RNA sequence: UCAGUUCGUAUCUACAAAUUGAUAAGAUCCGAAUCUAGUCUAUAGGAGGUUUAUUAAAAGAAAAGGAGCAAUAAUAAUUUUCUUGUUCUAUCAAGAAGGUGCUAUUGCUCCUUU
Numbered sequence: 001u002c003a004g005u006u007c008g009u010a011u012c013u014a015c016a017a018a019u020u021g022a023u024a025a026g027a028u029c030c031g032a033a034u035c036u037a038g039u040c041u042a043u044a045g046g047a048g049g050u051u052u053a054u055u056a057a058a059a060g061a062a063a064a065g066g067a068g069c070a071a072u073a074a075u076a077a078u079u080u081u082c083u084u085g086u087u088c089u090a091u092c093a094a095g096a097a098g099g100u101g102c103u104a105u106u107g108c109u110c111c112u113u114u
Base pairs, nucleotide, nucleotide: 006022007021008020010019011018062114063113064112065111066110067109068108069107070106071105072104073103076100080097081096082095083094084093

The family of this 114-nucleotide RNA from Solanum tuberosum is "Plastid-psbA-1 3UTR RNA". Rfam's curators write: Plastid psbA-1 is a non-coding RNA (ncRNA) present in plastids. It was identified in inverted repeat sequences in the 3 prime untranslate region (3UTR) of photosystem II quinone-binding protein (psbA). The family is grouped with related families in Rfam's "Plastid-psbA 3UTR RNA clan". The family's RNA type in Rfam is cis-regulatory element. The source organism's lineage runs through Eukaryota, Viridiplantae, Euphyllophyta, Mesangiospermae and Solanum. The match comes from Rfam's covariance-model search (73 bits).